[Rfam]
RNA: Antizyme RNA frameshifting stimulation element
Organism: Octodon degus
RNA sequence: UGAUGUCCCUUCCCCACCCCAGAAGAUCCCAGGUAGGCGAGGGAAUAGUCAGUGAGAUC
Numbered sequence: 001u002g003a004u005g006u007c008c009c010u011u012c013c014c015c016a017c018c019c020c021a022g023a024a025g026a027u028c029c030c031a032g033g034u035a036g037g038c039g040a041g042g043g044a045a046u047a048g049u050c051a052g053u054g055a056g057a058u059c
Base pairs, nucleotide, nucleotide: 006044007043008042009041010040011039013037014036016034017033018032025059026058027057028056030054